[Rfam]
RNA sequence: UGCAUUGAUGAGUUGAAGUCGGUUAUAAGCUUAAAUACAGAACAUACCCGUUGUUAUUAAAGCUACCAACCGACUUCAGAUCAUACUUUGCA
Number, nucleotide and partner (000 for none) at each position: 001u000002g091003c090004a089005u000006u000007g000008a000009u083010g082011a081012g000013u079014u078015g077016a076017a075018g074019u073020c072021g071022g070023u069024u068025a000026u000027a000028a064029g063030c062031u061032u060033a000034a058035a057036u056037a055038c053039a052040g051041a000042a000043c000044a000045u000046a000047c000048c000049c000050g000051u040052u039053g038054u000055u037056a036057u035058u034059a000060a032061a031062g030063c029064u028065a000066c000067c000068a024069a023070c022071c021072g020073a019074c018075u017076u016077c015078a014079g013080a000081u011082c010083a009084u000085a000086c000087u000088u000089u004090g003091c002092a000